[Rfam]
RNA sequence: AAGGCGAUACCGAAAAGCCUUAAUAGAGUAGGUU
Numbered sequence: 001a002a003g004g005c006g007a008u009a010c011c012g013a014a015a016a017g018c019c020u021u022a023a024u025a026g027a028g029u030a031g032g033u034u
Stems, first nucleotide, its partner, number of pairs: 002020004010032002
The family of this 34-nucleotide sequence from Flavivirga aquatica is "DUF805b RNA". Taxonomically the source falls in Flavivirga (Bacteria, Pseudomonadati, Bacteroidota, Flavobacteriales). The match comes from Rfam's covariance-model search (41 bits).